Rfam assigns this 54-nucleotide RNA sequence from Salmo salar to the family "UnaL2 LINE 3' element".
RNA sequence: GAUGUUGACAUUUGUAAGUCGCUCUGGAUAAGAGCGUCUGCUCAAUGACUUAAA
Numbered sequence: 001g002a003u004g005u006u007g008a009c010a011u012u013u014g015u016a017a018g019u020c021g022c023u024c025u026g027g028a029u030a031a032g033a034g035c036g037u038c039u040g041c042u043c044a045a046u047g048a049c050u051u052a053a054a
Base pairs, nucleotide, nucleotide: 014041015040016039020036021035022034023033024032025031

A search with the family's covariance model found it, with a score of 58 bits. NCBI's taxonomy places the organism under Eukaryota, Teleostomi, Actinopterygii, Salmoninae, Salmo. Pairs were carried over by alignment from the consensus structure, which is taken from published work. The family's RNA type in Rfam is cis-regulatory element.